[Rfam]
RNA sequence: GCUGUUUGGUAAUAAGGCUCUGGAAUGAGCGCUGGGCACAGCGCCCAAGUCAAGACUGCGGAGACAUUCCUUGCUGCCUUCCUACUGAGAAGAGC
Numbered sequence: 001g002c003u004g005u006u007u008g009g010u011a012a013u014a015a016g017g018c019u020c021u022g023g024a025a026u027g028a029g030c031g032c033u034g035g036g037c038a039c040a041g042c043g044c045c046c047a048a049g050u051c052a053a054g055a056c057u058g059c060g061g062a063g064a065c066a067u068u069c070c071u072u073g074c075u076g077c078c079u080u081c082c083u084a085c086u087g088a089g090a091a092g093a094g095c
Base pairs, nucleotide, nucleotide: 001095002094003093005091
Dot-bracket structure: (((.(.....................................................................................).)))
Rfam assigns this 95-nucleotide RNA from Hipposideros armiger to the family "Small nucleolar RNA U83B".
A search with the family's covariance model found it, with a score of 90 bits.
U83B belongs to the C/D family of snoRNAs. U83B like U83A has no documented RNA target and they share the same host gene with the C/D box snoRNA U43 (RPL3). N.B. U83A/B/C have no sequence similarity with the U83 snoRNA that was cloned by Jady and Kiss (2000).
The pairing is the family consensus, mapped onto this sequence.
The source organism's lineage runs through Eukaryota, Tetrapoda, Eutheria, Boreoeutheria and Hipposideros.
Rfam classes the family as a C/D-box small nucleolar RNA.
A reference for the family is Jady and Kiss (2000), "Characterisation of the U83 and U84 small nucleolar RNAs: two novel 2'-O-ribose methylation guide RNAs that lack complementarities to ribosomal RNAs", Nucleic Acids Res.